A member of the RNA family "Actinobacteria sRNA Ms_IGR-5" from Streptomyces lucensis, 223 nucleotides long. By type it is a small RNA. On this family, see Li et al., RNA 2013: "Identification of small RNAs in Mycobacterium smegmatis using heterologous Hfq". The organism belongs to Streptomyces lucensis, within Bacteria.
RNA sequence: ACACGAGAAGGGAGGUGGUUCGGCAGAUGUAUGAGAACCGGACGCGUGAGGUGGCUGCGGGCUAGCAGUCCGCCACCACAUCAAGUGCGGUGCCGGACCCGCGCGCGGAAGAUGCGUGCAGCCGGCCCAAUCCCAAGCAGUCACCCGACCCGCGAGCUCGCCGGUACGUCCGGCCGGCUUCUCCGCCGUCAGGCGGGGGACCCGAGCUCGCGGGUCGUCUGCG
Numbered sequence: 001a002c003a004c005g006a007g008a009a010g011g012g013a014g015g016u017g018g019u020u021c022g023g024c025a026g027a028u029g030u031a032u033g034a035g036a037a038c039c040g041g042a043c044g045c046g047u048g049a050g051g052u053g054g055c056u057g058c059g060g061g062c063u064a065g066c067a068g069u070c071c072g073c074c075a076c077c078a079c080a081u082c083a084a085g086u087g088c089g090g091u092g093c094c095g096g097a098c099c100c101g102c103g104c105g106c107g108g109a110a111g112a113u114g115c116g117u118g119c120a121g122c123c124g125g126c127c128c129a130a131u132c133c134c135a136a137g138c139a140g141u142c143a144c145c146c147g148a149c150c151c152g153c154g155a156g157c158u159c160g161c162c163g164g165u166a167c168g169u170c171c172g173g174c175c176g177g178c179u180u181c182u183c184c185g186c187c188g189u190c191a192g193g194c195g196g197g198g199g200a201c202c203c204g205a206g207c208u209c210g211c212g213g214g215u216c217g218u219c220u221g222c223g
Stems, first nucleotide, its partner, number of pairs: 015058005060127004065122002068119002071116003146217013160178006